Shown here is a 156-nucleotide RNA sequence from Populus alba, a member of the family "MIR2912 microRNA precursor family". Rfam links the family to the GO terms RISC complex and miRNA-mediated post-transcriptional gene silencing. Pairs were carried over by alignment from the consensus structure, which was predicted with RNAalifold. The organism belongs to Populus, within Eukaryota.
RNA sequence: UCUAGAACUCGAGAUAUGGGCUGGAUACUAAACAAUGUCGGGGCUGCAGGACAGAUUCAAACUUCUAUAUUGUUGUUAUAAUUUGGACUUGAAAAUGGUCUUUUGAAAUCUUGGACUCCACAUGAAAGUUUUAGGCCUAUGUCUUAGCUUUCCAUC
Numbered sequence: 001u002c003u004a005g006a007a008c009u010c011g012a013g014a015u016a017u018g019g020g021c022u023g024g025a026u027a028c029u030a031a032a033c034a035a036u037g038u039c040g041g042g043g044c045u046g047c048a049g050g051a052c053a054g055a056u057u058c059a060a061a062c063u064u065c066u067a068u069a070u071u072g073u074u075g076u077u078a079u080a081a082u083u084u085g086g087a088c089u090u091g092a093a094a095a096u097g098g099u100c101u102u103u104u105g106a107a108a109u110c111u112u113g114g115a116c117u118c119c120a121c122a123u124g125a126a127a128g129u130u131u132u133a134g135g136c137c138u139a140u141g142u143c144u145u146a147g148c149u150u151u152c153c154a155u156c
Stems, first nucleotide, its partner, number of pairs: 003154001005152003008147002011145010021134005027129003035123003041119003045115001048112004055104001060099001062098002068092001072088003